[Rfam]
RNA sequence: AUAUUCUUCGACCCGACUUGUGGCAAGAACUAAAUAGUUGGUGAACUCACUAUGUGUAGUUUGUUAACUCGCUACACGGUUCUUGUCACAAGACCGAGUAUGUGAAUAU
Numbered sequence: 001a002u003a004u005u006c007u008u009c010g011a012c013c014c015g016a017c018u019u020g021u022g023g024c025a026a027g028a029a030c031u032a033a034a035u036a037g038u039u040g041g042u043g044a045a046c047u048c049a050c051u052a053u054g055u056g057u058a059g060u061u062u063g064u065u066a067a068c069u070c071g072c073u074a075c076a077c078g079g080u081u082c083u084u085g086u087c088a089c090a091a092g093a094c095c096g097a098g099u100a101u102g103u104g105a106a107u108a109u
Base pairs, nucleotide, nucleotide: 001109002108003107004106005105006104008102011099012098014096015095017092018091019090020089022087023086024085025084026083027082028081029080030079031078035074
Rfam assigns this 109-nucleotide RNA sequence from Oryza meridionalis to the family "MIR1861 microRNA precursor family". NCBI's taxonomy places the organism under Eukaryota, Viridiplantae, Streptophytina, Embryophyta, Oryza. Pairs were carried over by alignment from the consensus structure, which was predicted with RNAalifold. The match comes from Rfam's covariance-model search (90 bits). Rfam 15.1 lists 210 matches to the family in 9 species. Rfam links the family to the GO terms RISC complex and miRNA-mediated post-transcriptional gene silencing.